[Rfam]
RNA sequence: GCCGGUCCUCGGUAGUGGCACCCGGACACAUCGGUUCCGGGCGCUUCGAUCGAAGACCGGC
Numbered sequence: 001g002c003c004g005g006u007c008c009u010c011g012g013u014a015g016u017g018g019c020a021c022c023c024g025g026a027c028a029c030a031u032c033g034g035u036u037c038c039g040g041g042c043g044c045u046u047c048g049a050u051c052g053a054a055g056a057c058c059g060g061c
Base pairs, nucleotide, nucleotide: 001061002060003059004058005057006056007055009053010052011051012050013049017045018044019043021041022040023039024038025037026036028035029034